[Rfam]
RNA sequence: GACCCACGGCUCUACAACGGAUCGUCCGGCACGUACCUGCCGGUGGAGGAAAUGCAA
Numbered sequence: 001g002a003c004c005c006a007c008g009g010c011u012c013u014a015c016a017a018c019g020g021a022u023c024g025u026c027c028g029g030c031a032c033g034u035a036c037c038u039g040c041c042g043g044u045g046g047a048g049g050a051a052a053u054g055c056a057a
Base pairs, nucleotide, nucleotide: 010048011047012046013045014044026043027042028041029040030039031038

The record is a 57-nucleotide sequence from Pseudoclavibacter chungangensis, which matches "msiK RNA" in Rfam. Lineage of the source: Bacteria > Bacillati > Micrococcales > Microbacteriaceae > Pseudoclavibacter. It scores 55 bits against the family's covariance model. Pairs were carried over by alignment from the consensus structure, which is taken from published work.